[Rfam]
RNA sequence: GAAGGCCGCGCGGGAGAGUUUGGACCGUCCUCGGACGGGCCGACGCCGAAGGAGCAACCGCCCCCGGAAUCUCUCAGGCACCAAGGACCGCGCGCGCCUG
Dot-bracket structure: ......(((((((......((((................)))).(((((..(((...(.......)....))))).)))........)))))))......
Shown here is a 100-nucleotide RNA sequence from Sphingomonas piscis, a member of the family "Glycine riboswitch aptamer". The base pairs follow the family's consensus structure. The organism belongs to Sphingomonas, within Bacteria. Rfam describes the family as follows. This family represents the bacterial glycine riboswitch. Glycine riboswitches usually consist of two metabolite-binding aptamers domains with similar structures in tandem. The aptamers cooperatively bind glycine to regulate the expression of downstream genes. In Bacillus subtilis, this riboswitch is found upstream of the gcvT operon which controls glycine degradation.